[Rfam]
RNA: Vault RNA
RNA sequence: GCGCCGUCUUAGCUCAGUGGUUACUUCACUUGCCUGCGCAUGUGUCGGGGUUCUCGAAUCCCGGUCUCCAACCACGGGCGCUGCCCGGCGUUUUA
Numbered sequence: 001g002c003g004c005c006g007u008c009u010u011a012g013c014u015c016a017g018u019g020g021u022u023a024c025u026u027c028a029c030u031u032g033c034c035u036g037c038g039c040a041u042g043u044g045u046c047g048g049g050g051u052u053c054u055c056g057a058a059u060c061c062c063g064g065u066c067u068c069c070a071a072c073c074a075c076g077g078g079c080g081c082u083g084c085c086c087g088g089c090g091u092u093u094u095a
Stems, first nucleotide, its partner, number of pairs: 002090005012079004017075004025058003